[Rfam]
RNA sequence: AAGACUAUACUCGAACAGAAUCAGUUCUAUAGUAUAAUCUCCUCUGUCUGUACUACACAAGUCAGACAACCCUUCCAACUUUGGUGACGAGAAGAGGUCCAGUCACGGAAACGUGACAUAUGCACUUCCUUCCUAUCUCGAGCCCUUCGGGUGCCCGAUGGAAGAGUGCUGGAAGACCGUCCCCCUCAGGAGUGCCCCCGUGGCCGAUGAAGGGUGAGUGACAUGGACGGACAGAAAAGUU
Numbered sequence: 001a002a003g004a005c006u007a008u009a010c011u012c013g014a015a016c017a018g019a020a021u022c023a024g025u026u027c028u029a030u031a032g033u034a035u036a037a038u039c040u041c042c043u044c045u046g047u048c049u050g051u052a053c054u055a056c057a058c059a060a061g062u063c064a065g066a067c068a069a070c071c072c073u074u075c076c077a078a079c080u081u082u083g084g085u086g087a088c089g090a091g092a093a094g095a096g097g098u099c100c101a102g103u104c105a106c107g108g109a110a111a112c113g114u115g116a117c118a119u120a121u122g123c124a125c126u127u128c129c130u131u132c133c134u135a136u137c138u139c140g141a142g143c144c145c146u147u148c149g150g151g152u153g154c155c156c157g158a159u160g161g162a163a164g165a166g167u168g169c170u171g172g173a174a175g176a177c178c179g180u181c182c183c184c185c186u187c188a189g190g191a192g193u194g195c196c197c198c199c200g201u202g203g204c205c206g207a208u209g210a211a212g213g214g215u216g217a218g219u220g221a222c223a224u225g226g227a228c229g230g231a232c233a234g235a236a237a238a239g240u241u
Stems, first nucleotide, its partner, number of pairs: 001043001003041001006036001008034004017028004046067005052062003078240005097228005102222005111180003122169002125164005181214003186209001
Shown here is a 241-nucleotide RNA sequence from Microchloropsis salina, a member of the family "ACEA small nucleolar RNA U3". Small nucleolar RNAs (snoRNAs) are involved in the processing and modification of rRNA in the nucleolus. There are two main classes of snoRNAs: the box C/D class, and the box H/ACA class. U3 snoRNA is a member of the box C/D class. Indeed, the box C/D element is a subset of the six short sequence elements found in all U3 snoRNAs, namely boxes A, A', B, C, C', and D. The U3 snoRNA secondary structure is characterised by a small 5' domain (with boxes A and A'), and a larger 3' domain (with boxes B, C, C', and D), the two domains being linked by a single-stranded hinge. Boxes B and C form the B/C motif, which appears to be exclusive to U3 snoRNAs, and boxes C' and D form the C'/D motif. The latter is functionally similar to the C/D motifs found in other snoRNAs. The 5' domain and the hinge region act as a pre-rRNA-binding domain. The 3' domain has conserved protein-binding sites. Both the box B/C and box C'/D motifs are sufficient for nuclear retention of U3 snoRNA. The box C'/D motif is also necessary for nucleolar localisation, stability and hyper-methylation of U3 snoRNA. Both box B/C and C'/D motifs are involved in specific protein interactions and are necessary for the rRNA processing functions of U3 snoRNA. The source organism's lineage runs through Eukaryota, Sar, Eustigmatophyceae, Eustigmatales and Microchloropsis salina. Rfam 15.1 lists 2,156 matches to the family in 132 species. Rfam classes the family as a C/D-box small nucleolar RNA. On this family, see Zwieb, Nucleic Acids Res 1997: "The uRNA database".